[Rfam]
RNA sequence: CGUAAAGGCUAGGGGUGCUUCGAUAUUUGUCUGAGGCUGAGAGAGACCCUUUGAACCUGACUCCGGUUAAUACCGGCGUAGGAAAGCCCAUCUUCCCUGCG
Numbered sequence: 001c002g003u004a005a006a007g008g009c010u011a012g013g014g015g016u017g018c019u020u021c022g023a024u025a026u027u028u029g030u031c032u033g034a035g036g037c038u039g040a041g042a043g044a045g046a047c048c049c050u051u052u053g054a055a056c057c058u059g060a061c062u063c064c065g066g067u068u069a070a071u072a073c074c075g076g077c078g079u080a081g082g083a084a085a086g087c088c089c090a091u092c093u094u095c096c097c098u099g100c101g
Base pairs, nucleotide, nucleotide: 007088008087009086010085011050012049013048014047016044017037018036019035020034021033056082057081058080059079063076064075065074066073
Background
Rfam assigns this 101-nucleotide RNA from Candidatus Methylobacter favarea to the family "TPP riboswitch aptamer (THI element)". A search with the family's covariance model found it, with a score of 69 bits. The source organism's lineage runs through Bacteria, Pseudomonadati, Pseudomonadota, Methylococcaceae and Methylobacter.